[Rfam]
RNA: Small nucleolar RNA U3
Organism: Melopsittacus undulatus
RNA sequence: AAGACUAUACUUUCAGGGAUCAUUUCUGUAGUUGGUCACUAGAGGAGAGUGAUCUCACCUGAUCGGCGUCACAAGCCACGAGGAGGAGCGAGGUGCUGUCUCCUGAGCGCGAGGCGGGCGGGCGGCGCUGCUUGUGCAGGAGCCUCCCGCCAUCGAUGACCGUUCCCGGCGCUUGUUGUGCCGGGAGGGAGAGAGCACGGGCUGAGUGGU
Numbered sequence: 001a002a003g004a005c006u007a008u009a010c011u012u013u014c015a016g017g018g019a020u021c022a023u024u025u026c027u028g029u030a031g032u033u034g035g036u037c038a039c040u041a042g043a044g045g046a047g048a049g050u051g052a053u054c055u056c057a058c059c060u061g062a063u064c065g066g067c068g069u070c071a072c073a074a075g076c077c078a079c080g081a082g083g084a085g086g087a088g089c090g091a092g093g094u095g096c097u098g099u100c101u102c103c104u105g106a107g108c109g110c111g112a113g114g115c116g117g118g119c120g121g122g123c124g125g126c127g128c129u130g131c132u133u134g135u136g137c138a139g140g141a142g143c144c145u146c147c148c149g150c151c152a153u154c155g156a157u158g159a160c161c162g163u164u165c166c167c168g169g170c171g172c173u174u175g176u177u178g179u180g181c182c183g184g185g186a187g188g189g190a191g192a193g194a195g196c197a198c199g200g201g202c203u204g205a206g207u208g209g210u
Stems, first nucleotide, its partner, number of pairs: 002040002006035001009032003014028005051063001053062002075210005093198005099192006107163003117151004124144003128139004166184007